RNA sequence: UUUAAAACGUUGAAGAGGUAAAAGAACAAGUGUCGUUGAUUUCAGAGAGCCGGUGGGUGGUGUGAACCGGUAAAACGCCUUGAAUCGACAUCCCCUCUGAGUGAAGGAUGAACGUCAUUUGACCAGUAAGUCCUUUCGGUUGAUCCCGUUACCAAUCACUGCGAGGCAGCUUAGGCUGCGAAGUAGGGUGGUACCAUGAAAAAACUUUCAUCCCUAUG
Numbered sequence: 001u002u003u004a005a006a007a008c009g010u011u012g013a014a015g016a017g018g019u020a021a022a023a024g025a026a027c028a029a030g031u032g033u034c035g036u037u038g039a040u041u042u043c044a045g046a047g048a049g050c051c052g053g054u055g056g057g058u059g060g061u062g063u064g065a066a067c068c069g070g071u072a073a074a075a076c077g078c079c080u081u082g083a084a085u086c087g088a089c090a091u092c093c094c095c096u097c098u099g100a101g102u103g104a105a106g107g108a109u110g111a112a113c114g115u116c117a118u119u120u121g122a123c124c125a126g127u128a129a130g131u132c133c134u135u136u137c138g139g140u141u142g143a144u145c146c147c148g149u150u151a152c153c154a155a156u157c158a159c160u161g162c163g164a165g166g167c168a169g170c171u172u173a174g175g176c177u178g179c180g181a182a183g184u185a186g187g188g189u190g191g192u193a194c195c196a197u198g199a200a201a202a203a204a205c206u207u208u209c210a211u212c213c214c215u216a217u218g
Stems, first nucleotide, its partner, number of pairs: 007102002015097004028080001030078003040072001049071006104135006137148003166179005185215004196211005

The record is a 218-nucleotide sequence from Tetzosporium hominis, which matches "T-box leader" in Rfam. The organism belongs to Tetzosporium, within Bacteria. Rfam's curators write: Uncharged tRNA acts as the effector for transcription antitermination of genes in the T-box leader family. T-boxes are found upstream of many aminoacyl-tRNA synthetase genes and some amino acid biosynthetic genes usually in Gram-positive bacteria. The anticodon of a specific tRNA base pairs to a specifier sequence within the T-box motif, and the NCCA acceptor tail of the tRNA base pairs to a conserved bulge in the T-box antiterminator hairpin.